[Rfam]
RNA: SAM riboswitch aptamer (S box leader)
RNA sequence: UUCUUAUCAAGAGCGGUGGAAGGAUCUGGCCUGAUGACACCCGGCAACCUUAAGUUUGAUACUUAAACGGUGCUAAAUCCAGCUGAGCAUUUUGCUCGGAAAGAUAAGAG
Numbered sequence: 001u002u003c004u005u006a007u008c009a010a011g012a013g014c015g016g017u018g019g020a021a022g023g024a025u026c027u028g029g030c031c032u033g034a035u036g037a038c039a040c041c042c043g044g045c046a047a048c049c050u051u052a053a054g055u056u057u058g059a060u061a062c063u064u065a066a067a068c069g070g071u072g073c074u075a076a077a078u079c080c081a082g083c084u085g086a087g088c089a090u091u092u093u094g095c096u097c098g099g100a101a102a103g104a105u106a107a108g109a110g
Base pairs, nucleotide, nucleotide: 001110002109003108004107005106006105007104008103013042015041016040017039021032022031023030026082027081028080029079043074044073045072046071048070049069050066051065052064053063078102083099084098085097086096087095088094